[Rfam]
Description:
Rfam assigns this 36-nucleotide sequence to the family "DUF805b RNA". Rfam classes the family as a cis-regulatory element. The sequence is in the family's curated seed alignment.
RNA sequence: AAGGAGGAAGCCGAAAAUCCUGAAGUAGAGUAGGCA
Numbered sequence: 001a002a003g004g005a006g007g008a009a010g011c012c013g014a015a016a017a018u019c020c021u022g023a024a025g026u027a028g029a030g031u032a033g034g035c036a
Stems, first nucleotide, its partner, number of pairs: 002021004010035003